This 198-nucleotide RNA sequence from Pectobacterium atrosepticum belongs to the Rfam family "GcvB RNA". Rfam classes the family as a non-coding RNA gene.

RNA sequence: ACUUCCUGGGCCGGAACGAAAAGUGCGGAGGGGUGACCUGAGGUGCUUUUGGCUUGUGGUUGUGAUGUUGUGUUUGCUAUUUUUUUGUCUGCUUCUUGCAGAUGUGGUAGCGAGUCUACCCUAUUCACUUCCUGUACAUUUACCCUGUCUGUCUAAAGUGAUUUUUUAUGUAGCACCGCAAAUUGCGGUGCUUUUUUU
Numbered sequence: 001a002c003u004u005c006c007u008g009g010g011c012c013g014g015a016a017c018g019a020a021a022a023g024u025g026c027g028g029a030g031g032g033g034u035g036a037c038c039u040g041a042g043g044u045g046c047u048u049u050u051g052g053c054u055u056g057u058g059g060u061u062g063u064g065a066u067g068u069u070g071u072g073u074u075u076g077c078u079a080u081u082u083u084u085u086u087g088u089c090u091g092c093u094u095c096u097u098g099c100a101g102a103u104g105u106g107g108u109a110g111c112g113a114g115u116c117u118a119c120c121c122u123a124u125u126c127a128c129u130u131c132c133u134g135u136a137c138a139u140u141u142a143c144c145c146u147g148u149c150u151g152u153c154u155a156a157a158g159u160g161a162u163u164u165u166u167u168a169u170g171u172a173g174c175a176c177c178g179c180a181a182a183u184u185g186c187g188g189u190g191c192u193u194u195u196u197u198u
Base pairs, nucleotide, nucleotide: 009054010053011052012051015050016049021048022047023046024045025044026043031039032038033037086104087103088102089101090100091099092098106120107119108118109117110116138166172192173191174190175189176188177187178186179185

The literature on the family includes a 2000 paper in Mol Microbiol by Urbanowski et al., "The gcvB gene encodes a small untranslated RNA involved in expression of the dipeptide and oligopeptide transport systems in Escherichia coli". Pairs were carried over by alignment from the consensus structure, which is taken from published work. Rfam's curators put it in the seed alignment. Rfam describes the family as follows. The gcvB gene encodes a small untranslated RNA involved in expression of the dipeptide and oligopeptide transport systems in Escherichia coli. Included several unknown homologues in alignment (Bateman A pers obs). It base-pairs with SorC. This interaction triggers the degradation of GcvB by RNase E, alleviating the GcvB-mediated mRNA repression of other amino acid-related transport and metabolic genes.